A member of the RNA family "Small nucleolar RNA snoR111" from Vanilla planifolia, 130 nucleotides long. The family's consensus secondary structure was predicted with WAR. It scores 57 bits against the family's covariance model. NCBI's taxonomy places the organism under Eukaryota, Euphyllophyta, Spermatophyta, Asparagales, Vanilla. For this family Rfam cites "Experimental RNomics: identification of 140 candidates for small non-messenger RNAs in the plant Arabidopsis thaliana" (Marker et al., Curr Biol, 2002).
RNA sequence: CAUUUUUAAAGAGAGUUGCAUUAUAACUUUUUCUGGAUCCGAAGCUAUGGUAUAUAGAAGUUAGUUAAGAUAUCGUUUCAGUCGCCCUUCUACUAUUUGGUUGGCGAUUCGAUUGUUGACUUAACAACAC
Numbered sequence: 001c002a003u004u005u006u007u008a009a010a011g012a013g014a015g016u017u018g019c020a021u022u023a024u025a026a027c028u029u030u031u032u033c034u035g036g037a038u039c040c041g042a043a044g045c046u047a048u049g050g051u052a053u054a055u056a057g058a059a060g061u062u063a064g065u066u067a068a069g070a071u072a073u074c075g076u077u078u079c080a081g082u083c084g085c086c087c088u089u090c091u092a093c094u095a096u097u098u099g100g101u102u103g104g105c106g107a108u109u110c111g112a113u114u115g116u117u118g119a120c121u122u123a124a125c126a127a128c129a130c
Base pairs, nucleotide, nucleotide: 006037007036009034011032013029014028015027016026017025018024064125066123067122068121069120072113073112074111075110081108082107083106084105085104086103089100090099